[Rfam]
RNA sequence: CAGCCACUUCCUUUACUCGGAUCGUCCGGCACGUUCCUGCCGGUGAAGGGGGCUUCAC
Numbered sequence: 001c002a003g004c005c006a007c008u009u010c011c012u013u014u015a016c017u018c019g020g021a022u023c024g025u026c027c028g029g030c031a032c033g034u035u036c037c038u039g040c041c042g043g044u045g046a047a048g049g050g051g052g053c054u055u056c057a058c
Stems, first nucleotide, its partner, number of pairs: 009050007026043006
RNA: msiK RNA
Organism: Streptomyces boluensis